RNA sequence: GUCACGUGAUGAGUUGUGUUGUCAGAGCUGUUUUAUUCAGGGUUGACAUUAUCUAUCACCCACCUGACUGAUGACU
Numbered sequence: 001g002u003c004a005c006g007u008g009a010u011g012a013g014u015u016g017u018g019u020u021g022u023c024a025g026a027g028c029u030g031u032u033u034u035a036u037u038c039a040g041g042g043u044u045g046a047c048a049u050u051a052u053c054u055a056u057c058a059c060c061c062a063c064c065u066g067a068c069u070g071a072u073g074a075c076u
Stems, first nucleotide, its partner, number of pairs: 001075004027038001030036002
The record is a 76-nucleotide sequence from Pomacea canaliculata, which matches "Small nucleolar RNA SNORD83" in Rfam. It is annotated as a C/D-box small nucleolar RNA. Lineage of the source: Eukaryota > Opisthokonta > Mollusca > Caenogastropoda > Pomacea. A reference for the family is Jady and Kiss (2000), "Characterisation of the U83 and U84 small nucleolar RNAs: two novel 2'-O-ribose methylation guide RNAs that lack complementarities to ribosomal RNAs", Nucleic Acids Res.